Rfam assigns this 74-nucleotide RNA sequence from Eptesicus fuscus to the family "mir-9193 microRNA precursor family". Rfam links the family to the GO terms RISC complex and miRNA-mediated post-transcriptional gene silencing. NCBI's taxonomy places the organism under Eukaryota, Opisthokonta, Bilateria, Gnathostomata, Eptesicus. Rfam's curators put it in the seed alignment. The base pairs follow the family's consensus structure, which was predicted with RNAalifold.

RNA sequence: CACGGGGGGAGGUGGUCCCUCAGCCCAGUUUGUGAGAGGGUGCAGGCCAGGCUGAGGGACUCCACCAGUGCACA
Number, nucleotide and partner (000 for none) at each position: 001c000002a000003c000004g071005g000006g069007g000008g000009g066010a000011g000012g063013u000014g061015g060016u059017c058018c057019c056020u055021c054022a053023g052024c051025c050026c000027a000028g047029u046030u045031u044032g043033u042034g041035a000036g000037a000038g000039g000040g000041u034042g033043c032044a031045g030046g029047c028048c000049a000050g025051g024052c023053u022054g021055a020056g019057g018058g017059a016060c015061u014062c000063c012064a000065c000066c009067a000068g000069u006070g000071c004072a000073c000074a000